The record is a 45-nucleotide RNA from Mycolicibacterium gilvum, which matches "Mycobacterium sRNA Ms_AS-5" in Rfam. The sequence is in the family's curated seed alignment. Lineage of the source: Bacteria > Bacillati > Actinomycetota > Mycobacteriales > Mycolicibacterium gilvum. The base pairs follow the family's consensus structure.

[Rfam]
RNA sequence: GUCCGGGUAGUGGCCGGUGAAGAUGGUCGGACGGCUGGGGACGCA
Numbered sequence: 001g002u003c004c005g006g007g008u009a010g011u012g013g014c015c016g017g018u019g020a021a022g023a024u025g026g027u028c029g030g031a032c033g034g035c036u037g038g039g040g041a042c043g044c045a
Base pairs, nucleotide, nucleotide: 012032014030015029016028017027018026